The record is a 150-nucleotide RNA sequence from Callorhinus ursinus, which matches "U12 minor spliceosomal RNA" in Rfam.
Rfam links the family to the GO terms mRNA branch site recognition, U12 snRNP and pre-mRNA branch point binding.
It scores 109 bits against the family's covariance model.
NCBI's taxonomy places the organism under Eukaryota, Deuterostomia, Tetrapoda, Pinnipedia, Callorhinus.
It is annotated as a spliceosomal small nuclear RNA.
Pairs were carried over by alignment from the consensus structure.
RNA sequence: AUACCUUCAAUUUAUGAAUAAGGAAAAUAACGAUUUGAGGUGACGCCCGAAUCCUCACUGCUAAUGUGAGAUGAAUUUUUGAGCGGGUAAGGAUUGCCUCUAAGGUGACCUGCCUACUUUGCGAGAAGCCUGGGAGUCAGGAUCUGCCCC
Numbered sequence: 001a002u003a004c005c006u007u008c009a010a011u012u013u014a015u016g017a018a019u020a021a022g023g024a025a026a027a028u029a030a031c032g033a034u035u036u037g038a039g040g041u042g043a044c045g046c047c048c049g050a051a052u053c054c055u056c057a058c059u060g061c062u063a064a065u066g067u068g069a070g071a072u073g074a075a076u077u078u079u080u081g082a083g084c085g086g087g088u089a090a091g092g093a094u095u096g097c098c099u100c101u102a103a104g105g106u107g108a109c110c111u112g113c114c115u116a117c118u119u120u121g122c123g124a125g126a127a128g129c130c131u132g133g134g135a136g137u138c139a140g141g142a143u144c145u146g147c148c149c150c
Stems, first nucleotide, its partner, number of pairs: 004023004032053006039046001054070005085149004091145005100134002103131004109125001111123003